RNA sequence: CUGUGGUGCAUUGUAGUUGCAUUGCAUGUGUCUCUCAGCUGGGUGCAAUGUUCCUGCAGUGCAAGACAG
Dot-bracket structure: ((((..((((((((((..(.(((((((...............))))))).)..))))))))))..))))